[Rfam]
RNA sequence: UGGCUGUGAUGAAGUUUUAUUUGUGACCGGAGACGGUCUCUUCUGAGUACCGCCUGUGACGGCCACAACCCUCUAAGAAGUUCUGAGCUG
Numbered sequence: 001u002g003g004c005u006g007u008g009a010u011g012a013a014g015u016u017u018u019a020u021u022u023g024u025g026a027c028c029g030g031a032g033a034c035g036g037u038c039u040c041u042u043c044u045g046a047g048u049a050c051c052g053c054c055u056g057u058g059a060c061g062g063c064c065a066c067a068a069c070c071c072u073c074u075a076a077g078a079a080g081u082u083c084u085g086a087g088c089u090g
Stems, first nucleotide, its partner, number of pairs: 001090004
Dot-bracket structure: ((((..................................................................................))))
Source information:
Rfam assigns this 90-nucleotide sequence from Rhamnella rubrinervis to the family "Small nucleolar RNA U61". Taxonomically the source falls in Rhamnella (Eukaryota, Viridiplantae, Streptophyta, fabids). Its family is annotated with RNA processing and nucleolus in the Gene Ontology. The base pairs follow the family's consensus structure, which was predicted with WAR. A search with the family's covariance model found it, with a score of 64 bits.